[Rfam]
RNA: T-box leader
RNA sequence: AAUAAAGCGAAGAAGAGAAGUAGUAAAUAUACUUGUAUUGUUCAGAGAGAAGAUGGUUGGUGCGAAUCUUCACAAUAGGUAUAUUGAAGCAGUCUCGGAGCUUUGAACCGAAAUGAUUAGUAGGCUUCAACGGAGUUCCACCGUUAUCAUAGGAUAGAGUAUCGGUAAUAUGAAUUGCCAGUACUUGAUGAGAGCAGAGUUUAUCUCUGAAUUUAGGUGGUACCACGGAUAAAGAAUUCGCCCUAAGC
Numbered sequence: 001a002a003u004a005a006a007g008c009g010a011a012g013a014a015g016a017g018a019a020g021u022a023g024u025a026a027a028u029a030u031a032c033u034u035g036u037a038u039u040g041u042u043c044a045g046a047g048a049g050a051a052g053a054u055g056g057u058u059g060g061u062g063c064g065a066a067u068c069u070u071c072a073c074a075a076u077a078g079g080u081a082u083a084u085u086g087a088a089g090c091a092g093u094c095u096c097g098g099a100g101c102u103u104u105g106a107a108c109c110g111a112a113a114u115g116a117u118u119a120g121u122a123g124g125c126u127u128c129a130a131c132g133g134a135g136u137u138c139c140a141c142c143g144u145u146a147u148c149a150u151a152g153g154a155u156a157g158a159g160u161a162u163c164g165g166u167a168a169u170a171u172g173a174a175u176u177g178c179c180a181g182u183a184c185u186u187g188a189u190g191a192g193a194g195c196a197g198a199g200u201u202u203a204u205c206u207c208u209g210a211a212u213u214u215a216g217g218u219g220g221u222a223c224c225a226c227g228g229a230u231a232a233a234g235a236a237u238u239c240g241c242c243c244u245a246a247g248c
Stems, first nucleotide, its partner, number of pairs: 007101002015096004026085006039074003049071006104129004108124002131143003195209005214245004226240004